[Rfam]
RNA sequence: UAUGUAUUUCAUGGAUGAUUUCUGCACAGACUAGGCCAUAGAAACCAGUGUGUGGAAAUGCUUCUGUUACAUGUUUA
Dot-bracket structure: ((.((((.(.(((((..(((((((((((..((..............)))))))))))))...))))).).)))).))

Background
The record is a 77-nucleotide sequence from Papio anubis, which matches "mir-147 microRNA precursor family" in Rfam. The organism belongs to Papio, within Eukaryota. Rfam links the family to the GO terms RISC complex and miRNA-mediated post-transcriptional gene silencing. The literature on the family includes a 2008 paper in BMC Genomics by Kawaji et al., "Hidden layers of human small RNAs".